RNA sequence: AGAGGCGGCGAAACCGUUACCAUUACUGAGUUUAGUAAUGGUAAGGGUUCUGCUGCCUUU
Numbered sequence: 001a002g003a004g005g006c007g008g009c010g011a012a013a014c015c016g017u018u019a020c021c022a023u024u025a026c027u028g029a030g031u032u033u034a035g036u037a038a039u040g041g042u043a044a045g046g047g048u049u050c051u052g053c054u055g056c057c058u059u060u
Base pairs, nucleotide, nucleotide: 003058004057006055007054008053012049013048014047015046017044018043019042020041021040022039023038024037025036026035027034028033